[Rfam]
RNA sequence: CAGGGUUGAAAUGGCCAUUACCUCACAGUCACGUGGUCAUGUUGGUACAACGUGUGAUGUGACGUAGUGGAAGUCUCGACCUG
Numbered sequence: 001c002a003g004g005g006u007u008g009a010a011a012u013g014g015c016c017a018u019u020a021c022c023u024c025a026c027a028g029u030c031a032c033g034u035g036g037u038c039a040u041g042u043u044g045g046u047a048c049a050a051c052g053u054g055u056g057a058u059g060u061g062a063c064g065u066a067g068u069g070g071a072a073g074u075c076u077c078g079a080c081c082u083g
Stems, first nucleotide, its partner, number of pairs: 003082007015070007023062004029057004034052002

This 83-nucleotide RNA sequence from Manduca sexta belongs to the Rfam family "mir-989 microRNA precursor family". The base pairs follow the family's consensus structure, which was predicted with RNAalifold.